RNA: Purine riboswitch aptamer
RNA sequence: GCUAAACUGAAAAAGAUGGCUUAUAUAAGUUCAAAAUCGGUUGAACGUUUCUACCAACUACCUCAAUAGUUGACUAUAAGUGAUAGUUUACUGUAU
Number, nucleotide and partner (000 for none) at each position: 001g000002c000003u000004a000005a000006a000007c000008u000009g000010a000011a000012a000013a000014a000015g000016a000017u000018g000019g081020c080021u079022u078023a077024u076025a075026u000027a000028a000029g046030u045031u044032c043033a042034a041035a000036a000037u000038c000039g000040g000041u034042u033043g032044a031045a030046c029047g000048u000049u000050u000051c000052u000053a000054c000055c072056a071057a070058c069059u068060a067061c000062c000063u000064c000065a000066a000067u060068a059069g058070u057071u056072g055073a000074c000075u025076a024077u023078a022079a021080g020081u019082g000083a000084u000085a000086g000087u000088u000089u000090a000091c000092u000093g000094u000095a000096u000